[Rfam]
RNA: mir-1451 microRNA precursor family
RNA sequence: AGCGCAGGAGCUGCCACCUCGCACAGGAGCAAGUUACCGCGUCCCACUCAUCUGCAGUAACUUGCUCCUGUGAGAGGCGGCGGCUCCUGGCU
Numbered sequence: 001a002g003c004g005c006a007g008g009a010g011c012u013g014c015c016a017c018c019u020c021g022c023a024c025a026g027g028a029g030c031a032a033g034u035u036a037c038c039g040c041g042u043c044c045c046a047c048u049c050a051u052c053u054g055c056a057g058u059a060a061c062u063u064g065c066u067c068c069u070g071u072g073a074g075a076g077g078c079g080g081c082g083g084c085u086c087c088u089g090g091c092u
Base pairs, nucleotide, nucleotide: 001092002091003090005089006088007087008086009085010084011083012082013081014080015079017077018076019075020074022072023071024070025069026068027067028066029065030064031063032062033061034060035059036058037057039055040054041053